[Rfam]
RNA sequence: UGAUAUAGGUCUUCAAAGUCAGAUUACUGCAUGCUUGCAUGCAAUGUAAUUUGACCUUGAAGACCGAACAUACAUGAGGAAGUAGGACGAAAAGUCCGGAUUCCGAAUGUAUGUAGGAAUUACGGGAACGAAGUGGAGUAAUUCCGUAUAUUA
Number, nucleotide and partner (000 for none) at each position: 001u153002g152003a151004u150005a149006u148007a147008g000009g064010u063011c062012u061013u000014c000015a058016a057017a000018g055019u054020c053021a052022g051023a050024u049025u048026a047027c046028u044029g042030c041031a040032u039033g038034c000035u000036u000037g000038c033039a032040u031041g030042c029043a000044a028045u000046g027047u026048a025049a024050u023051u022052u021053g020054a019055c018056c000057u016058u015059g000060a000061a012062g011063a010064c009065c000066g000067a000068a114069c113070a112071u111072a110073c109074a108075u107076g000077a000078g104079g103080a102081a101082g000083u000084a000085g097086g096087a095088c094089g000090a000091a000092a000093a000094g088095u087096c086097c085098g000099g000100a000101u081102u080103c079104c078105g000106a000107a075108u074109g073110u072111a071112u070113g069114u068115a000116g000117g144118a143119a142120u141121u140122a139123c138124g000125g000126g000127a000128a134129c133130g000131a000132a000133g129134u128135g000136g000137a000138g123139u122140a121141a120142u119143u118144c117145c000146g000147u007148a006149u005150a004151u003152u002153a001
The record is a 153-nucleotide RNA sequence from Butyrivibrio sp. YAB3001, which matches "Clostridiales-1 RNA" in Rfam. NCBI's taxonomy places the organism under Bacteria, Clostridia, Lachnospirales, Lachnospiraceae, Butyrivibrio. By type it is a small RNA.